[Rfam]
RNA: MIR162_1 microRNA precursor family
Organism: Corchorus capsularis
RNA sequence: GGUAAAGACAUUGGAGGCAGCAGUUCAUCGAUCUCUUCCUGGGAAUUUUGUUGUGAGAAAUCAGAAUAAAUACAUGAAUCGAUCGAUAAACCUCUGCAUCCAGAGCCUUUCCU
Numbered sequence: 001g002g003u004a005a006a007g008a009c010a011u012u013g014g015a016g017g018c019a020g021c022a023g024u025u026c027a028u029c030g031a032u033c034u035c036u037u038c039c040u041g042g043g044a045a046u047u048u049u050g051u052u053g054u055g056a057g058a059a060a061u062c063a064g065a066a067u068a069a070a071u072a073c074a075u076g077a078a079u080c081g082a083u084c085g086a087u088a089a090a091c092c093u094c095u096g097c098a099u100c101c102a103g104a105g106c107c108u109u110u111c112c113u
Stems, first nucleotide, its partner, number of pairs: 013101003018096003023091003027087007036078003